About this RNA:
This 150-nucleotide RNA sequence from Nematostella vectensis belongs to the Rfam family "STAXI RNA". It is annotated as a small RNA.
RNA sequence: CACGGCAGGAAUGCCAUGUUAUGCCGCCCUGCAAGAGACGUGUUCACACGGCAGGGAUUAUAUGUCAUGCCUACCUGCAAGAGACGUGUUCACACGGCAGGGAUUAUAUGUUAUGCCUACCUGCAAGAGACGUGUUUACACGGCAGGGAU
Numbered sequence: 001c002a003c004g005g006c007a008g009g010a011a012u013g014c015c016a017u018g019u020u021a022u023g024c025c026g027c028c029c030u031g032c033a034a035g036a037g038a039c040g041u042g043u044u045c046a047c048a049c050g051g052c053a054g055g056g057a058u059u060a061u062a063u064g065u066c067a068u069g070c071c072u073a074c075c076u077g078c079a080a081g082a083g084a085c086g087u088g089u090u091c092a093c094a095c096g097g098c099a100g101g102g103a104u105u106a107u108a109u110g111u112u113a114u115g116c117c118u119a120c121c122u123g124c125a126a127g128a129g130a131c132g133u134g135u136u137u138a139c140a141c142g143g144c145a146g147g148g149a150u
Stems, first nucleotide, its partner, number of pairs: 018039003022035001024055002028051002040049003064085003068081001070101003074097002086095003110131003114127001116147003120143002132141003